A member of the RNA family "Small nucleolar RNA SNORD66" from Peromyscus maniculatus, 74 nucleotides long. The family's consensus secondary structure was predicted with RNAalifold. The literature on the family includes a 2001 paper in EMBO J by Huttenhofer et al., "RNomics: an experimental approach that identifies 201 candidates for novel, small, non-messenger RNAs in mouse". The family's RNA type in Rfam is C/D-box small nucleolar RNA. From the family's description: snoRNA HBII-142 is part of the C/D family of snoRNAs. The organism belongs to Peromyscus maniculatus, within Eukaryota.
[Rfam]
RNA sequence: CUGUGCAGUUUACUCUCUUGAGUGCCACAUGUGUGCCACAGAGUGCAUGUGGUGGUUCAGAGGACAAUGAACAG
Dot-bracket structure: ((((..................................................................))))